Source information
This 306-nucleotide part of an RNA from Capsaspora owczarzaki belongs to the Rfam family "Eukaryotic large subunit ribosomal RNA".

[Rfam]
RNA sequence: GAGUCUAACAUGUACGCGAGUCUUUGGGUGGCAAACCCAUCGGCGCAAUGAAAGUGAAGGCAAGUUCGGCUUGCUGAGGUGAGAGCUUCGUUCUCGGACGUUGUGCAUCAUCGACCGGUCUAGAGAUUUAUCAAAAGAUCUGAGUAAGAGCGUACCUGCUGGGACCCGAAAGAUGGUGAACUAUGCCCGCCUAGGGUGAAGCCAGAGGAAACUCUGGUGGAAGCUCGUAGGGGUUCUGACGUGCAAAUCGAUUCUCAAAGGUGGGUAUAGGGGCGAAAGACUAAUCGAACCAUCUAGUAGCUGGUU
Numbered sequence: 001g002a003g004u005c006u007a008a009c010a011u012g013u014a015c016g017c018g019a020g021u022c023u024u025u026g027g028g029u030g031g032c033a034a035a036c037c038c039a040u041c042g043g044c045g046c047a048a049u050g051a052a053a054g055u056g057a058a059g060g061c062a063a064g065u066u067c068g069g070c071u072u073g074c075u076g077a078g079g080u081g082a083g084a085g086c087u088u089c090g091u092u093c094u095c096g097g098a099c100g101u102u103g104u105g106c107a108u109c110a111u112c113g114a115c116c117g118g119u120c121u122a123g124a125g126a127u128u129u130a131u132c133a134a135a136a137g138a139u140c141u142g143a144g145u146a147a148g149a150g151c152g153u154a155c156c157u158g159c160u161g162g163g164a165c166c167c168g169a170a171a172g173a174u175g176g177u178g179a180a181c182u183a184u185g186c187c188c189g190c191c192u193a194g195g196g197u198g199a200a201g202c203c204a205g206a207g208g209a210a211a212c213u214c215u216g217g218u219g220g221a222a223g224c225u226c227g228u229a230g231g232g233g234u235u236c237u238g239a240c241g242u243g244c245a246a247a248u249c250g251a252u253u254c255u256c257a258a259a260g261g262u263g264g265g266u267a268u269a270g271g272g273g274c275g276a277a278a279g280a281c282u283a284a285u286c287g288a289a290c291c292a293u294c295u296a297g298u299a300g301c302u303g304g305u306u
Stems, first nucleotide, its partner, number of pairs: 005162003009158002012155006020044003025039005048055002078112005085104002114145002116142003119138003125132002165304002168301001172294006181270011192258001194226004201218007230255004235251002238249002272282002
The sequence is in the family's curated seed alignment. Taxonomically the source falls in Capsaspora owczarzaki (Eukaryota, Opisthokonta, Filasterea, Ministeriida).